The record is a 90-nucleotide RNA sequence from Shewanella amazonensis, which matches "Manganese Mn2+ riboswitch aptamer (yybP-ykoY)" in Rfam. The family has 29 seed sequences and 1,126 matches in Rfam 15.1. The match comes from Rfam's covariance-model search (48 bits). Rfam links the family to the GO term manganese ion binding. From the family's description: This RNA was originally discovered in E. coli during a large scale screen and was named SraF. The family was later found to exist upstream of related families of protein genes in many bacteria, including the the yybP and ykoK genes in B. subtilis. The specific functions of these proteins are unknown, but this structured RNA element may be involved in their genetic regulation as a riboswitch. The pairing is the family consensus, mapped onto this sequence.
RNA sequence: GGGGAGUAGCCAACCUGAGUCCGGCUCAGGGGUAAGCAUCAACACACUUGGCCACAUGCCAUGGUGCUUACAGCAAACAUGAGUUUGCCC
Numbered sequence: 001g002g003g004g005a006g007u008a009g010c011c012a013a014c015c016u017g018a019g020u021c022c023g024g025c026u027c028a029g030g031g032g033u034a035a036g037c038a039u040c041a042a043c044a045c046a047c048u049u050g051g052c053c054a055c056a057u058g059c060c061a062u063g064g065u066g067c068u069u070a071c072a073g074c075a076a077a078c079a080u081g082a083g084u085u086u087g088c089c090c
Base pairs, nucleotide, nucleotide: 014030015029016028032071033070034069035068036067037066038065039064040063041062049061050060051059052058073088074087075086076085077084078083